[Rfam]
RNA sequence: ACGCGUGCUCCGGGGUCGGUGAAAUUCCGAGCCGGCGGUGACAGUCCGCGAACCUCAUCCCGCACGACGGGGCGAGGCCGAACCGGUGGAAAUCCGGUACCGACGGUGAGAGUCCGGAUGGGAGGCAGCACGCGA
Dot-bracket structure: ..((((((((......(((.......))).[[((((((.....[[))))...((((.................))))....(((((.......)))))]])).(((.....]]))).......)..)))))))..
RNA: FMN riboswitch aptamer (RFN element)
Organism: Janibacter alkaliphilus